[Rfam]
This 119-nucleotide RNA from Catellatospora methionotrophica belongs to the Rfam family "SAM (S-adenosyl methionine) riboswitch aptamer". The literature on the family includes a 2008 paper in RNA by Weinberg et al., "The aptamer core of SAM-IV riboswitches mimics the ligand-binding site of SAM-I riboswitches". Its family is annotated with S-adenosylmethionine metabolic process and regulation of gene expression in the Gene Ontology. The family has 40 seed sequences and 2,360 matches in Rfam 15.1. The source organism's lineage runs through Bacteria, Bacillati, Micromonosporales, Micromonosporaceae and Catellatospora.
RNA sequence: GGUGUCGAAAGAUGGAGCAAAGCCCCGGCUUGCUGACCGGCAACCCUCUGUAGUUCGCGGUGGGGUGCCCCGGGUGAUGACCGGGCCCAGCCCGUUGACGUGCUGGGCAAGCGCGGACC
Numbered sequence: 001g002g003u004g005u006c007g008a009a010a011g012a013u014g015g016a017g018c019a020a021a022g023c024c025c026c027g028g029c030u031u032g033c034u035g036a037c038c039g040g041c042a043a044c045c046c047u048c049u050g051u052a053g054u055u056c057g058c059g060g061u062g063g064g065g066u067g068c069c070c071c072g073g074g075u076g077a078u079g080a081c082c083g084g085g086c087c088c089a090g091c092c093c094g095u096u097g098a099c100g101u102g103c104u105g106g107g108c109a110a111g112c113g114c115g116g117a118c119c
Base pairs, nucleotide, nucleotide: 001082002081003080011037013035014034015033021030022029039069040068041067044065045064046063048060049059085108086107087106088105089104090103091102093100094099